[Rfam]
About this RNA: Rfam assigns this 75-nucleotide sequence from Streptomyces armeniacus to the family "ASpks TB sRNA".
RNA sequence: CUUCACCGAGCCGAGCCACAACGGCUGUUCCGCGUCCCGCUCGCGCCCGUACGUGGCAAGCAGCGCCUGCGCCUC
Numbered sequence: 001c002u003u004c005a006c007c008g009a010g011c012c013g014a015g016c017c018a019c020a021a022c023g024g025c026u027g028u029u030c031c032g033c034g035u036c037c038c039g040c041u042c043g044c045g046c047c048c049g050u051a052c053g054u055g056g057c058a059a060g061c062a063g064c065g066c067c068u069g070c071g072c073c074u075c
Stems, first nucleotide, its partner, number of pairs: 014026004031071003038065002047056003

About this RNA
Pairs were carried over by alignment from the consensus structure, which is taken from published work. The family has 77 seed sequences and 9,052 matches in Rfam 15.1. By type it is an antisense RNA. The match comes from Rfam's covariance-model search (78 bits).